[Rfam]
RNA sequence: GUCUCAAUGAAUGCCAACAUAUUUGAUAUAUACGCUAUUCCUAUCUUUUGAUGCGGAAAUUAAUAAUUAAGGAGAGAC
Numbered sequence: 001g002u003c004u005c006a007a008u009g010a011a012u013g014c015c016a017a018c019a020u021a022u023u024u025g026a027u028a029u030a031u032a033c034g035c036u037a038u039u040c041c042u043a044u045c046u047u048u049u050g051a052u053g054c055g056g057a058a059a060u061u062a063a064u065a066a067u068u069a070a071g072g073a074g075a076g077a078c
Stems, first nucleotide, its partner, number of pairs: 001078005
RNA: Small nucleolar RNA U54